Shown here is a 72-nucleotide RNA sequence from Bacteroidetes bacterium oral taxon 272, a member of the family "tRNA". By type it is a transfer RNA. Transfer RNA (tRNA) molecules are approximately 80 nucleotides in length. Their secondary structure includes four short double-helical elements and three loops (D, anti-codon, and T loops). Pairs were carried over by alignment from the consensus structure, which is taken from published work.
[Rfam]
RNA sequence: GCUGUUAUAGCUCAGUGGUAGAGCACUUCCUUGGUAAGGAAGAGGUCCCGAGUUCAACUCUCGGUAACAGCU
Numbered sequence: 001g002c003u004g005u006u007a008u009a010g011c012u013c014a015g016u017g018g019u020a021g022a023g024c025a026c027u028u029c030c031u032u033g034g035u036a037a038g039g040a041a042g043a044g045g046u047c048c049c050g051a052g053u054u055c056a057a058c059u060c061u062c063g064g065u066a067a068c069a070g071c072u
Stems, first nucleotide, its partner, number of pairs: 001071007010024004026042005048064005